Shown here is a 153-nucleotide RNA from Salipiger profundus, a member of the family "Ruegeria cis2 sRNA". The source organism's lineage runs through Bacteria, Pseudomonadati, Pseudomonadota, Alphaproteobacteria and Salipiger. Gene Ontology term of the family: regulation of gene expression. The family's consensus secondary structure was predicted with RNAfold. On this family, see Rivers et al., Front Microbiol 2016: "Experimental Identification of Small Non-Coding RNAs in the Model Marine Bacterium Ruegeria pomeroyi DSS-3".

[Rfam]
RNA sequence: GUCGGAGUUGCGCGGGUUGUAGUCGACGAAGGCGUGGCCCCGCGACUGGUCGAUGGUGUGGAACAGCGGGUUCCAGCUGAACAUCGCCAGCAUGUGCGGGGGCAGCGAGUUGGCCACGAACAUCUUGCCCGAGGCGAUCAUGUUGGCCCGCUG
Number, nucleotide and partner (000 for none) at each position: 001g000002u000003c034004g033005g000006a000007g000008u030009u029010g000011c000012g000013c025014g024015g023016g000017u000018u000019g000020u000021a000022g000023u015024c014025g013026a000027c000028g000029a009030a008031g000032g000033c004034g003035u000036g000037g057038c056039c055040c000041c052042g051043c000044g000045a000046c000047u000048g000049g000050u000051c042052g041053a000054u000055g039056g038057u037058g000059u000060g000061g000062a000063a000064c153065a152066g151067c150068g149069g000070g082071u081072u080073c079074c000075a000076g000077c000078u000079g073080a072081a071082c070083a000084u000085c000086g147087c146088c145089a144090g143091c142092a141093u140094g139095u000096g000097c000098g000099g000100g000101g130102g129103c127104a126105g125106c000107g123108a000109g000110u119111u118112g117113g000114c000115c000116a000117c112118g111119a110120a000121c000122a000123u107124c000125u105126u104127g103128c000129c102130c101131g000132a000133g000134g000135c000136g000137a000138u000139c094140a093141u092142g091143u090144u089145g088146g087147c086148c000149c068150g067151c066152u065153g064